[Rfam]
RNA sequence: UCUUUUUCUUAAACAGUGUUUUAAAAAAGUU
Numbered sequence: 001u002c003u004u005u006u007u008c009u010u011a012a013a014c015a016g017u018g019u020u021u022u023a024a025a026a027a028a029g030u031u
Stems, first nucleotide, its partner, number of pairs: 003029005009024005014018001
Iron response element II: a 31-nucleotide RNA from Equus caballus. Pairs were carried over by alignment from the consensus structure, which is taken from published work. The family's RNA type in Rfam is cis-regulatory element. Gene Ontology term of the family: response to iron ion. The source organism's lineage runs through Eukaryota, Metazoa, Mammalia, Laurasiatheria and Equus. On this family, see Koeller et al., Proc Natl Acad Sci U S A 1989: "A cytosolic protein binds to structural elements within the iron regulatory region of the transferrin receptor mRNA". Rfam's curators write: IRE, TFRC, SLC40A1, SDHB, SLC11A2, CDC42BPA, ACO2, ALAS2_H.SAPIENS, CDC14A, EPAS1, ALAS2, qoxD, Hao1, NDUFS1, transferrin, Aconitate.